[Rfam]
RNA sequence: UCUGAAAAAGCCAAACUCAUCGUGAGGUGAGGACGGAAAGCUACGGGUCUUAGUGCAAGACAGCCGGGUUGCCUGCA
Numbered sequence: 001u002c003u004g005a006a007a008a009a010g011c012c013a014a015a016c017u018c019a020u021c022g023u024g025a026g027g028u029g030a031g032g033a034c035g036g037a038a039a040g041c042u043a044c045g046g047g048u049c050u051u052a053g054u055g056c057a058a059g060a061c062a063g064c065c066g067g068g069u070u071g072c073c074u075g076c077a
Stems, first nucleotide, its partner, number of pairs: 001077001004073001011036002016031006034063001039070004044066003047061003